Overview
Shown here is a 116-nucleotide RNA sequence from Methanosarcina acetivorans, a member of the family "Archaeal Small RNA 41". The organism belongs to Methanosarcina acetivorans, within Archaea. A reference for the family is Jager et al. (2009), "Deep sequencing analysis of the Methanosarcina mazei Go1 transcriptome in response to nitrogen availability", Proc Natl Acad Sci U S A. Rfam links the family to the GO terms sRNA-mediated gene silencing and mRNA 5'-UTR binding.
RNA sequence: GUCUAAGCGAACAGACAAAAAACAAAAAACGCCUCCUAAAUCGAUGAAUAAACUUGAAACGCUGCAUAUUCCUCACCUGUGAGUGCAGGCAGGCGGGGAAUAUCAGGUUCAAGGGC
Numbered sequence: 001g002u003c004u005a006a007g008c009g010a011a012c013a014g015a016c017a018a019a020a021a022a023c024a025a026a027a028a029a030c031g032c033c034u035c036c037u038a039a040a041u042c043g044a045u046g047a048a049u050a051a052a053c054u055u056g057a058a059a060c061g062c063u064g065c066a067u068a069u070u071c072c073u074c075a076c077c078u079g080u081g082a083g084u085g086c087a088g089g090c091a092g093g094c095g096g097g098g099a100a101u102a103u104c105a106g107g108u109u110c111a112a113g114g115g116c
Stems, first nucleotide, its partner, number of pairs: 009016001022045001026041001053113006062106003066103007074095001076093005